The record is a 154-nucleotide RNA from Kytococcus sp. HMSC28H12, which matches "c-di-AMP riboswitch aptamer (ydaO/yuaA leader)" in Rfam.
A search with the family's covariance model found it, with a score of 48 bits.
Gene Ontology terms of the family: regulation of gene expression and cyclic-di-AMP binding.
RNA sequence: CCCGGGAGAGUCCCGGGGUCUUGGCGGGUGUGGGGGACCCACAGGAAGUACGCGGGGUCAUCUCCCCGCUCGGGGUGAAGCCUCCUCCGGAGGCCGGGACACCUGACGUUCCGAACCCGACAGCUCACUCCACCGGCGGAUGCAGUCAGGAAGG
Number, nucleotide and partner (000 for none) at each position: 001c028002c027003c026004g025005g000006g000007a000008g000009a000010g000011u000012c000013c000014c000015g000016g000017g000018g000019u000020c000021u000022u000023g000024g000025c004026g003027g002028g001029u000030g133031u132032g131033g130034g129035g128036g000037a000038c000039c000040c072041a000042c000043a000044g000045g000046a000047a000048g000049u000050a000051c000052g000053c000054g000055g000056g000057g000058u000059c000060a000061u000062c000063u000064c000065c000066c000067c000068g000069c000070u000071c000072g040073g118074g117075g116076u000077g000078a000079a000080g000081c093082c092083u091084c090085c000086u000087c000088c000089g000090g084091a083092g082093g081094c000095c000096g112097g111098g110099a109100c000101a000102c000103c000104u000105g000106a000107c000108g000109u099110u098111c097112c096113g000114a000115a000116c075117c074118c073119g000120a000121c000122a000123g000124c000125u000126c000127a000128c035129u034130c033131c032132a031133c030134c000135g000136g000137c000138g000139g000140a000141u000142g000143c000144a000145g000146u000147c000148a000149g000150g000151a000152a000153g000154g000
Rfam describes the family as follows. This family represents a conserved RNA structure found upstream of the ydaO and yuaA genes in Bacillus subtilis and related genes in other bacteria.